[Rfam]
Nucleotides: 129
Base pairs, nucleotide, nucleotide: 015120016119017118020112031094032093034092035091041088042087043086044084048058065080066079067078068077069076070075
Number, partner (000 for none) and nucleotide at each position: 001000a002000c003000a004000u005000a006000g007000u008000g009000a010000a011000c012000a013000c014000c015120g016119u017118g018000a019000c020112u021000u022000u023000u024000a025000a026000u027000c028000a029000a030000u031094u032093g033000g034092u035091c036000g037000c038000a039000g040000g041088u042087u043086c044084g045000a046000g047000c048058c049000u050000c051000g052000c053000g054000a055000a056000g057000c058048g059000a060000g061000a062000c063000a064000g065080c066079a067078a068077c069076g070075c071000g072000u073000c074000a075070g076069c077068g078067u079066u080065g081000a082000c083000c084044c085000c086043g087042a088041a089000g090000g091035g092034g093032c094031g095000a096000a097000g098000c099000c100000g101000u102000a103000g104000g105000c106000u107000g108000a109000g110000u111000c112020a113000u114000c115000c116000u117000g118017c119016a120015c121000g122000a123000c124000c125000c126000a127000c128000c129000a